RNA: Small Cajal body-specific RNA 2
Organism: Merluccius polli
Nucleotides: 392
Base pairs, nucleotide, nucleotide: 042148044146045145046062047061049059050058051057079096082093084091085090099137100136101135104131106129107128108127110125111124180229181228182227185217186216187215188214190211191210192209194208200206201205245278246277252276253275254274257273258272283300284299285298286297287295288294289293303390304389305388312384313383315381316380317379331364332363333362334361340348341347
Number, partner (000 for none) and nucleotide at each position: 001000c002000a003000g004000a005000a006000g007000a008000a009000g010000a011000a012000g013000a014000a015000g016000c017000a018000c019000u020000u021000c022000c023000g024000g025000g026000u027000c028000a029000u030000g031000g032000u033000c034000u035000a036000u037000a038000u039000a040000u041000u042148g043000a044146g045145u046062g047061g048000u049059g050058u051057g052000u053000g054000a055000g056000u057051u058050g059049u060000u061047u062046u063000c064000u065000a066000g067000u068000a069000g070000u071000g072000c073000g074000g075000g076000a077000g078000u079096g080000a081000g082093u083000g084091g085090c086000g087000g088000a089000u090085g091084c092000g093082a094000g095000u096079u097000g098000u099137g100136u101135g102000c103000g104131c105000g106129c107128g108127u109000g110125u111124g112000u113000u114000g115000a116000c117000u118000g119000u120000a121000u122000g123000g124111c125110g126000a127108g128107u129106g130000a131104g132000u133000g134000u135101u136100g137099c138000g139000u140000u141000g142000u143000u144000u145045g146044u147000g148042u149000c150000u151000u152000u153000g154000u155000g156000u157000u158000u159000a160000a161000a162000a163000c164000c165000u166000a167000c168000a169000c170000a171000c172000u173000g174000a175000u176000c177000u178000u179000a180229u181228u182227u183000g184000a185217u186216c187215g188214g189000c190211u191210c192209g193000g194208g195000a196000u197000c198000u199000g200206g201205c202000c203000u204000u205201g206200u207000u208194c209192c210191g211190a212000c213000g214188u215187c216186g217185a218000g219000a220000u221000g222000a223000u224000a225000g226000a227182a228181a229180a230000g231000u232000u233000g234000c235000a236000c237000g238000c239000g240000a241000g242000c243000c244000c245278c246277u247000a248000u249000g250000g251000c252276g253275a254274u255000g256000u257273g258272c259000g260000u261000a262000c263000g264000a265000g266000a267000u268000c269000u270000c271000c272258g273257c274254a275253u276252u277246g278245g279000g280000c281000c282000u283300c284299c285298a286297c287295a288294c289293u290000u291000g292000a293289a294288g295287u296000u297286g298285u299284g300283g301000u302000c303390a304389g305388a306000c307000g308000u309000g310000a311000u312384g313383a314000u315381u316380u317379g318000a319000u320000c321000a322000g323000a324000u325000a326000u327000a328000c329000u330000a331364g332363u333362c334361u335000c336000g337000g338000u339000g340348g341347a342000u343000c344000u345000g346000a347341u348340c349000c350000a351000g352000u353000u354000c355000c356000a357000c358000a359000g360000c361334a362333g363332a364331c365000c366000a367000u368000g369000a370000g371000u372000a373000u374000a375000g376000a377000g378000g379317c380316g381315a382000u383313u384312c385000u386000g387000a388305u389304c390303u391000a392000a